RNA sequence: AUGCGAUGAGUCGAUGGGUGGCCCUAGGCCACCAUUGCGCUAGGGAGGUCAUUAACGCAGGAGCGGACCUUGACCAGUUGUGUGAACCGACUGGUCACACUAGCAAUAGUGCCCUGACCCCUGUCUUUGGAUAGGGGUCUUUU
Numbered sequence: 001a002u003g004c005g006a007u008g009a010g011u012c013g014a015u016g017g018g019u020g021g022c023c024c025u026a027g028g029c030c031a032c033c034a035u036u037g038c039g040c041u042a043g044g045g046a047g048g049u050c051a052u053u054a055a056c057g058c059a060g061g062a063g064c065g066g067a068c069c070u071u072g073a074c075c076a077g078u079u080g081u082g083u084g085a086a087c088c089g090a091c092u093g094g095u096c097a098c099a100c101u102a103g104c105a106a107u108a109g110u111g112c113c114c115u116g117a118c119c120c121c122u123g124u125c126u127u128u129g130g131a132u133a134g135g136g137g138u139c140u141u142u143u
Stems, first nucleotide, its partner, number of pairs: 012037005018032006042115004046070004056065003071097008098111004117138009